[Rfam]
RNA sequence: UAAGGCUGAAAGCAAUAUCCCGAUAGGAUCCAAUGAAUGGAUUUGCCUUGUAACCAAAGAAAAUGGGGGAAAUGAAAAUG
Dot-bracket structure: .................((((...(((.((((.....))))....))).....((.........))))))..........
The record is an 80-nucleotide RNA from Jeotgalibaca sp. PTS2502, which matches "SAM-III riboswitch aptamer (SMK box)" in Rfam. On this family, see Fuchs et al., Nat Struct Mol Biol 2006: "The S(MK) box is a new SAM-binding RNA for translational regulation of SAM synthetase". A search with the family's covariance model found it, with a score of 52 bits. The source organism's lineage runs through Bacteria, Bacillota, Bacilli, Carnobacteriaceae and Jeotgalibaca.